Background:
Small Cajal body specific RNA 16: a 188-nucleotide sequence from Castor canadensis.

[Rfam]
RNA sequence: AUGGUCUGGGGAAGAGCUCCUGUGUUGUUGAACCUGCCCAGCGGGUGGGUGCAGCCUUGUAACCAGGUAGCCCGACCUUGACCUAAAGUAAAUUCCCAGGGAAGUCCUUCCCGGGGUUUGGAUUUGCAGUAACAGGUGUGAGCAUUCCAGCAGCAGCUUGAUGGUCAUGUAUGACACUGCAAACAGGA
Numbered sequence: 001a002u003g004g005u006c007u008g009g010g011g012a013a014g015a016g017c018u019c020c021u022g023u024g025u026u027g028u029u030g031a032a033c034c035u036g037c038c039c040a041g042c043g044g045g046u047g048g049g050u051g052c053a054g055c056c057u058u059g060u061a062a063c064c065a066g067g068u069a070g071c072c073c074g075a076c077c078u079u080g081a082c083c084u085a086a087a088g089u090a091a092a093u094u095c096c097c098a099g100g101g102a103a104g105u106c107c108u109u110c111c112c113g114g115g116g117u118u119u120g121g122a123u124u125u126g127c128a129g130u131a132a133c134a135g136g137u138g139u140g141a142g143c144a145u146u147c148c149a150g151c152a153g154c155a156g157c158u159u160g161a162u163g164g165u166c167a168u169g170u171a172u173g174a175c176a177c178u179g180c181a182a183a184c185a186g187g188a
Stems, first nucleotide, its partner, number of pairs: 003083004008078003016071003019067004024063002027055004032050003095115003099111004123183008133173002139167003143163004149158003
The match comes from Rfam's covariance-model search (185 bits). The literature on the family includes a 2002 paper in EMBO J by Darzacq et al., "Cajal body-specific small nuclear RNAs: a novel class of 2'-O-methylation and pseudouridylation guide RNAs". scaRNAs are a specific class of small nuclear RNAs which localise to the Cajal bodies and guide the modification of RNA polymerase II transcribed spliceosomal RNAs U1, U2, U4, U5 and U12. The source organism's lineage runs through Eukaryota, Metazoa, Gnathostomata, Glires and Castor.